[Rfam]
RNA sequence: CAAAAGGCUCUUUUAAGAGCCACUCAAAUCUUUUUUUUAAAAAGCUG
Dot-bracket structure: .....((((((....))))))..........................

Overview: Rfam assigns this 47-nucleotide RNA sequence from Acipenser ruthenus to the family "Histone 3' UTR stem-loop". It is annotated as a cis-regulatory element. Lineage of the source: Eukaryota > Deuterostomia > Teleostomi > Acipenseroidei > Acipenser. The match comes from Rfam's covariance-model search (36 bits). The base pairs follow the family's consensus structure, which is taken from published work.